[Rfam]
RNA sequence: CCCUUCAGCUCCUACAGAACUCUGCUAUAAUUGUGUGAUCCAGAUUCUGUUUCCCGCAAUGAUGCUAGCAGUGUGUUGCGCUGAAGGAGAGCAUUGUGCACUCGGCUGACAAUGAGACUCGGUCGAACCUCUUUCUUAAUGUUCGUUGGCCUCUGUCUCGAGGUUUAGUGCUACACGU
Numbered sequence: 001c002c003c004u005u006c007a008g009c010u011c012c013u014a015c016a017g018a019a020c021u022c023u024g025c026u027a028u029a030a031u032u033g034u035g036u037g038a039u040c041c042a043g044a045u046u047c048u049g050u051u052u053c054c055c056g057c058a059a060u061g062a063u064g065c066u067a068g069c070a071g072u073g074u075g076u077u078g079c080g081c082u083g084a085a086g087g088a089g090a091g092c093a094u095u096g097u098g099c100a101c102u103c104g105g106c107u108g109a110c111a112a113u114g115a116g117a118c119u120c121g122g123u124c125g126a127a128c129c130u131c132u133u134u135c136u137u138a139a140u141g142u143u144c145g146u147u148g149g150c151c152u153c154u155g156u157c158u159c160g161a162g163g164u165u166u167a168g169u170g171c172u173a174c175a176c177g178u
Stems, first nucleotide, its partner, number of pairs: 020073001023070005030063004037053001041049003098171005104165002120149001122147001124145004
The family of this 178-nucleotide RNA sequence from Menidia menidia is "Small nucleolar RNA SNORA81". Rfam links the family to the GO terms nucleolus and RNA processing. A reference for the family is Gu et al. (2005), "A novel experimental approach for systematic identification of box H/ACA snoRNAs from eukaryotes", Nucleic Acids Res.